RNA sequence: CAUGUCUGUUUCCCUGUUUUUCUUUCGCUUCUUUUUCGCAUCCUGCUUGUUUAGAUCAUAAACGGGGCGGCAUCUGGUCUGGUAAGAGAUAAGCGAAAGACGAACAGACAAGCCUCCCACCGGGAGGCUUUUUUAUA
Numbered sequence: 001c002a003u004g005u006c007u008g009u010u011u012c013c014c015u016g017u018u019u020u021u022c023u024u025u026c027g028c029u030u031c032u033u034u035u036u037c038g039c040a041u042c043c044u045g046c047u048u049g050u051u052u053a054g055a056u057c058a059u060a061a062a063c064g065g066g067g068c069g070g071c072a073u074c075u076g077g078u079c080u081g082g083u084a085a086g087a088g089a090u091a092a093g094c095g096a097a098a099g100a101c102g103a104a105c106a107g108a109c110a111a112g113c114c115u116c117c118c119a120c121c122g123g124g125a126g127g128c129u130u131u132u133u134u135a136u137a
Base pairs, nucleotide, nucleotide: 016105017104018103019102021100022099023098024097025096026095027094028093029092030091032089033088034087036085038083039082043067044066069079070078071077110130111129112128113127114126115125116124117123118122

Description: This 137-nucleotide sequence from Oceanisphaera arctica belongs to the Rfam family "Phenylalanine leader peptide". It is annotated as a cis-regulatory leader. The literature on the family includes a 1978 paper in Proc Natl Acad Sci U S A by Zurawski et al., "Nucleotide sequence of the leader region of the phenylalanine operon of Escherichia coli".